[Rfam]
RNA sequence: AAUUAAAUAGGUGAUGACGUUCACCAAUAAUAAAUGGGCAAAUUCUAAUGACGUCUACUAUUAC
Numbered sequence: 001a002a003u004u005a006a007a008u009a010g011g012u013g014a015u016g017a018c019g020u021u022c023a024c025c026a027a028u029a030a031u032a033a034a035u036g037g038g039c040a041a042a043u044u045c046u047a048a049u050g051a052c053g054u055c056u057a058c059u060a061u062u063a064c
Stems, first nucleotide, its partner, number of pairs: 010025004016055006
Rfam assigns this 64-nucleotide sequence from Lactobacillus acetotolerans to the family "Fluoride riboswitch aptamer (crcB RNA motif)". Pairs were carried over by alignment from the consensus structure, which is taken from published work. A reference for the family is Baker et al. (2012), "Widespread genetic switches and toxicity resistance proteins for fluoride", Science.